[Rfam]
RNA sequence: CGAGUCCGGCACGUGGACGUGGCUGCCCAUCAAGGCCGACUCCCGGUUACUCUGACGCCGUGCGGCAUCCCGCUGGCCGGGUAACCGCAUAGCCGACAGCCGUCGCACCUCAGGGAGCCCCUUCAUG
Number, nucleotide and partner (000 for none) at each position: 001c000002g000003a000004g000005u000006c000007c000008g000009g000010c000011a000012c000013g000014u000015g000016g000017a000018c000019g000020u000021g000022g000023c000024u000025g000026c000027c000028c000029a000030u000031c000032a000033a000034g000035g000036c000037c000038g000039a000040c000041u000042c000043c000044c000045g000046g000047u000048u000049a000050c000051u000052c000053u000054g000055a000056c000057g000058c000059c000060g000061u089062g088063c087064g086065g000066c000067a082068u081069c080070c079071c000072g000073c000074u000075g000076g000077c000078c000079g070080g069081g068082u067083a000084a000085c000086c064087g063088c062089a061090u000091a000092g106093c105094c000095g104096a103097c102098a000099g000100c000101c000102g097103u096104c095105g093106c092107a000108c000109c000110u000111c000112a000113g000114g000115g000116a000117g000118c000119c000120c000121c000122u000123u000124c000125a000126u000127g000